[Rfam]
RNA sequence: GGACGGAUAAGGCAUUCACGCCGCAUCCGGCAGUUGUACGCAGGUGCCUGAUGCGACGCUGGCGCGUCUUAUCAUGCC
Numbered sequence: 001g002g003a004c005g006g007a008u009a010a011g012g013c014a015u016u017c018a019c020g021c022c023g024c025a026u027c028c029g030g031c032a033g034u035u036g037u038a039c040g041c042a043g044g045u046g047c048c049u050g051a052u053g054c055g056a057c058g059c060u061g062g063c064g065c066g067u068c069u070u071a072u073c074a075u076g077c078c
Stems, first nucleotide, its partner, number of pairs: 002031001004029005011022003046077002049074005055068005
The record is a 78-nucleotide RNA from Shigella dysenteriae, which matches "Nucleoid-associated noncoding RNA 4 (CssrE)" in Rfam. The source organism's lineage runs through Bacteria, Pseudomonadota, Gammaproteobacteria, Enterobacterales and Shigella dysenteriae. The base pairs follow the family's consensus structure, which is taken from published work. It scores 65 bits against the family's covariance model. Its family is annotated with bacterial nucleoid DNA packaging, bacterial nucleoid and protein binding in the Gene Ontology. By type it is a small RNA.